[Rfam]
RNA sequence: AUAUAAUAUUGUUUUGCUAUUUUCGGCCAAUAAUACAAUGACAGGUAAAAAAGUUAUUAUGCAUGUCAUUGCACUAUUGGUCGAGAAUAGCAAAACAUUUUAUUC
Numbered sequence: 001a002u003a004u005a006a007u008a009u010u011g012u013u014u015u016g017c018u019a020u021u022u023u024c025g026g027c028c029a030a031u032a033a034u035a036c037a038a039u040g041a042c043a044g045g046u047a048a049a050a051a052a053g054u055u056a057u058u059a060u061g062c063a064u065g066u067c068a069u070u071g072c073a074c075u076a077u078u079g080g081u082c083g084a085g086a087a088u089a090g091c092a093a094a095a096c097a098u099u100u101u102a103u104u105c
Base pairs, nucleotide, nucleotide: 003103004102005101012095013094014093015092016091017090018089019088020087022085023084024083025082026081027080028079029078030077031076032075034073036071037070038069039068040067041066042065043064045062046061047060049058050057
Rfam assigns this 105-nucleotide RNA sequence from Prunus yedoensis to the family "MIR6274 microRNA precursor family". Rfam links the family to the GO terms miRNA-mediated post-transcriptional gene silencing and RISC complex. The match comes from Rfam's covariance-model search (82 bits). Pairs were carried over by alignment from the consensus structure, which was predicted with RNAalifold.